[Rfam]
RNA sequence: UAUAUUUGGCCCCUUAAUUGCGAUAAACGCUAUUAACCGCAUAAAAAUUAUUUAAAUAAUAUUGGAAUG
Numbered sequence: 001u002a003u004a005u006u007u008g009g010c011c012c013c014u015u016a017a018u019u020g021c022g023a024u025a026a027a028c029g030c031u032a033u034u035a036a037c038c039g040c041a042u043a044a045a046a047a048u049u050a051u052u053u054a055a056a057u058a059a060u061a062u063u064g065g066a067a068u069g
Stems, first nucleotide, its partner, number of pairs: 014036005